Overview: A member of the RNA family "nuoG RNA" from Yersinia enterocolitica, 43 nucleotides long. The organism belongs to Yersinia enterocolitica subsp. enterocolitica, within Bacteria.
RNA sequence: GAAUUUUUGAUUAACGCUUGCCUUAUGGCAAGCCACUUGGAAG
Numbered sequence: 001g002a003a004u005u006u007u008u009g010a011u012u013a014a015c016g017c018u019u020g021c022c023u024u025a026u027g028g029c030a031a032g033c034c035a036c037u038u039g040g041a042a043g
Stems, first nucleotide, its partner, number of pairs: 016033007

Overview: The family's RNA type in Rfam is cis-regulatory element.